[Rfam]
RNA sequence: AGGCUGUAGCUAAAUAUAAUAACAAAUGAAGUUUUACUGGCCGGUUGUCGUUUUUUAGUCGAUAAAUCUGCUUACCGAACUUCAUAUAUCU
Dot-bracket structure: .........................((((((((.....(((.((((((((.........)))).)))).))).....))))))))......